[Rfam]
Nucleotides: 083
Base pairs, nucleotide, nucleotide: 022039023038024037026035027034028033059082062079063078064077065076066075067074
Number, partner (000 for none) and nucleotide at each position: 001000c002000a003000u004000u005000g006000a007000a008000u009000u010000a011000c012000a013000a014000u015000a016000c017000c018000u019000u020000c021000a022039a023038g024037g025000c026035u027034u028033u029000u030000c031000c032000u033028g034027a035026g036000a037024c038023c039022u040000c041000g042000a043000g044000u045000a046000a047000a048000a049000u050000u051000u052000u053000u054000g055000a056000a057000a058000a059082a060000c061000c062079c063078u064077g065076u066075c067074u068000a069000u070000u071000u072000u073000u074067a075066g076065g077064c078063a079062g080000c081000a082059u083000u
SmY spliceosomal RNA: an 83-nucleotide sequence from Caenorhabditis latens.
The literature on the family includes a 1996 paper in RNA by Maroney et al., "Direct analysis of nematode cis- and trans-spliceosomes: a functional role for U5 snRNA in spliced leader addition trans-splicing and the identification of novel Sm snRNPs".
By type it is a spliceosomal small nuclear RNA.